A member of the RNA family "FMN riboswitch aptamer (RFN element)" from Natronincola peptidivorans, 127 nucleotides long. The RFN element is a highly conserved domain that is found frequently in the 5'-untranslated regions of prokaryotic mRNAs that encode for flavin mononucleotide (FMN) biosynthesis and transport proteins. This element is a metabolite-dependent riboswitch that directly binds FMN in the absence of proteins. In Bacillus subtilis, the riboswitch most likely controls gene expression by causing premature transcription termination within the 5' untranslated region of the ribDEAHT operon and precluding access to the ribosome-binding site of ypaA mRNA.The FMN riboswitch structure, reported in present an FMN-bound six-stem junction, adopts a butterfly-like scaffold, stapled together by opposingly directed but nearly identically folded peripheral domains.

RNA sequence: AGACACUUUCAGGGCAGGGUGAAAUUCCCGACCGGCGGUAAUGCUUUAAGCGAAGCCCGCGAACCUUUUAGGUUGAUCUGGUGAGAUUCCAGAGCCGACAGUAAAGUCUGGAUGGGAGAAAGUAGAC
Numbered sequence: 001a002g003a004c005a006c007u008u009u010c011a012g013g014g015c016a017g018g019g020u021g022a023a024a025u026u027c028c029c030g031a032c033c034g035g036c037g038g039u040a041a042u043g044c045u046u047u048a049a050g051c052g053a054a055g056c057c058c059g060c061g062a063a064c065c066u067u068u069u070a071g072g073u074u075g076a077u078c079u080g081g082u083g084a085g086a087u088u089c090c091a092g093a094g095c096c097g098a099c100a101g102u103a104a105a106g107u108c109u110g111g112a113u114g115g116g117a118g119a120a121a122g123u124a125g126a127c
Stems, first nucleotide, its partner, number of pairs: 005123006017029003031107002033097002035060004055095002063073003077093005099110003